RNA sequence: UGGCUGAUGAUGAGUGAUCUUAAGGAUCUUAGCGGAUUUCAGUGAGACUUAGUCUAUGAUCUGAUAUUUGUUGUUACACACACUGAAGCCC
Numbered sequence: 001u002g003g004c005u006g007a008u009g010a011u012g013a014g015u016g017a018u019c020u021u022a023a024g025g026a027u028c029u030u031a032g033c034g035g036a037u038u039u040c041a042g043u044g045a046g047a048c049u050u051a052g053u054c055u056a057u058g059a060u061c062u063g064a065u066a067u068u069u070g071u072u073g074u075u076a077c078a079c080a081c082a083c084u085g086a087a088g089c090c091c
Stems, first nucleotide, its partner, number of pairs: 002090004
The record is a 91-nucleotide sequence from Musa balbisiana, which matches "Small nucleolar RNA R11/Z151" in Rfam. The family's RNA type in Rfam is C/D-box small nucleolar RNA. It scores 71 bits against the family's covariance model.